[Rfam]
RNA sequence: AGCACUUGUGUUUGUUUUUGUUUAAUUUGUGGACAAAGACUUAGAGACAGGUGCAGAAAAUAAAACCUCUUUUGCAACCCAGAGCUCAUUGUUCAGUAUGAGUUUUGAUACAGAUAAGAAGGAACAUU
Numbered sequence: 001a002g003c004a005c006u007u008g009u010g011u012u013u014g015u016u017u018u019u020g021u022u023u024a025a026u027u028u029g030u031g032g033a034c035a036a037a038g039a040c041u042u043a044g045a046g047a048c049a050g051g052u053g054c055a056g057a058a059a060a061u062a063a064a065a066c067c068u069c070u071u072u073u074g075c076a077a078c079c080c081a082g083a084g085c086u087c088a089u090u091g092u093u094c095a096g097u098a099u100g101a102g103u104u105u106u107g108a109u110a111c112a113g114a115u116a117a118g119a120a121g122g123a124a125c126a127u128u
Stems, first nucleotide, its partner, number of pairs: 002054008011045001014040008026031001067122002070119005080107010
RNA: Small nucleolar RNA SNORA40
Organism: Equus caballus